[Rfam]
RNA sequence: AAAUGUGAAAGGCAAACCGGCCGCGAGGCCGGGACGCAAAACUACAGGGUCUCUGUACCGUUGUUUUCUGACGAGUUGCGAUA
Numbered sequence: 001a002a003a004u005g006u007g008a009a010a011g012g013c014a015a016a017c018c019g020g021c022c023g024c025g026a027g028g029c030c031g032g033g034a035c036g037c038a039a040a041a042c043u044a045c046a047g048g049g050u051c052u053c054u055g056u057a058c059c060g061u062u063g064u065u066u067u068c069u070g071a072c073g074a075g076u077u078g079c080g081a082u083a
Stems, first nucleotide, its partner, number of pairs: 012037002017032006040077004045073001049072003057065001059063001
Rfam assigns this 83-nucleotide sequence from Eubacterium pyruvativorans to the family "c-di-GMP-I riboswitch aptamer". Taxonomically the source falls in Eubacterium (Bacteria, Bacillati, Bacillota, Eubacteriales). Rfam links the family to the GO term cyclic-di-GMP binding. Pairs were carried over by alignment from the consensus structure, which is taken from published work.